[Rfam]
RNA: mir-7563 microRNA precursor family
Organism: Ameiurus melas
RNA sequence: ACCGUGUACUUACCUGCUAUAUAAUAGGUGAAAUACAUAUAUCUCGGCUAUUAUAUAGUGAGUAAGUACACGGUUU
Numbered sequence: 001a002c003c004g005u006g007u008a009c010u011u012a013c014c015u016g017c018u019a020u021a022u023a024a025u026a027g028g029u030g031a032a033a034u035a036c037a038u039a040u041a042u043c044u045c046g047g048c049u050a051u052u053a054u055a056u057a058g059u060g061a062g063u064a065a066g067u068a069c070a071c072g073g074u075u076u
Base pairs, nucleotide, nucleotide: 001074002073003072004071005070006069007068008067009066010065011064012063013062015060017058018057019056020055021054022053023052024051025050026049027048029046030045031044033042034041035040